[Rfam]
RNA sequence: UUGAAGCUCCAUCUAAAAAUGGAUAAGAUCUUGGUCUGAGUGUAUAUGCGUUUUUGAAAUAAACGGAGCAAUAACCCCCCUUGUUCUAACAAAAGGGCGUUAUUGUUCCU
Numbered sequence: 001u002u003g004a005a006g007c008u009c010c011a012u013c014u015a016a017a018a019a020u021g022g023a024u025a026a027g028a029u030c031u032u033g034g035u036c037u038g039a040g041u042g043u044a045u046a047u048g049c050g051u052u053u054u055u056g057a058a059a060u061a062a063a064c065g066g067a068g069c070a071a072u073a074a075c076c077c078c079c080c081u082u083g084u085u086c087u088a089a090c091a092a093a094a095g096g097g098c099g100u101u102a103u104u105g106u107u108c109c110u
Stems, first nucleotide, its partner, number of pairs: 008023005063110001065109010077097002081092002
Shown here is a 110-nucleotide sequence from Downingia elegans, a member of the family "Plastid-psbA-1 3UTR RNA". It is one of the family's seed sequences. The organism belongs to Downingia, within Eukaryota. Pairs were carried over by alignment from the consensus structure, which was predicted with LocARNA. Plastid psbA-1 is a non-coding RNA (ncRNA) present in plastids.